[Rfam]
RNA sequence: CCAUUUAAUCAGGGAGUCAUAGCACAAAUAUUCACAUCAUAGCCCUCUCAGGUUCCUAUGAUCUGUGAAUUCUGCA
Numbered sequence: 001c002c003a004u005u006u007a008a009u010c011a012g013g014g015a016g017u018c019a020u021a022g023c024a025c026a027a028a029u030a031u032u033c034a035c036a037u038c039a040u041a042g043c044c045c046u047c048u049c050a051g052g053u054u055c056c057u058a059u060g061a062u063c064u065g066u067g068a069a070u071u072c073u074g075c076a
Stems, first nucleotide, its partner, number of pairs: 013045002016043002022075003026071002028040002049065005055060001
A member of the RNA family "Mammalian CPEB3 ribozyme" from Microcaecilia unicolor, 76 nucleotides long. A search with the family's covariance model found it, with a score of 37 bits. Taxonomically the source falls in Microcaecilia (Eukaryota, Opisthokonta, Tetrapoda, Siphonopidae). Pairs were carried over by alignment from the consensus structure, which is taken from published work.